[Rfam]
RNA sequence: UUCUACUUGUCGGAGUGCCUAUUGGCUGAGACCGUUUAUUCGGGAUCCGUUGAACCUGAUCAGAUUAGUAUCUGCGAAGGGAACAAGAGAACAUUGACU
Numbered sequence: 001u002u003c004u005a006c007u008u009g010u011c012g013g014a015g016u017g018c019c020u021a022u023u024g025g026c027u028g029a030g031a032c033c034g035u036u037u038a039u040u041c042g043g044g045a046u047c048c049g050u051u052g053a054a055c056c057u058g059a060u061c062a063g064a065u066u067a068g069u070a071u072c073u074g075c076g077a078a079g080g081g082a083a084c085a086a087g088a089g090a091a092c093a094u095u096g097a098c099u
Stems, first nucleotide, its partner, number of pairs: 006087005011049004016043001017026003033042002055080003061074004
A member of the RNA family "TPP riboswitch aptamer (THI element)" from Vibrio aerogenes, 99 nucleotides long. The organism belongs to Vibrio aerogenes, within Bacteria. Rfam describes the family as follows. Vitamin B(1) in its active form thiamin pyrophosphate (TPP) is an essential coenzyme that is synthesised by coupling of pyrimidine and thiazole moieties in bacteria. It scores 74 bits against the family's covariance model.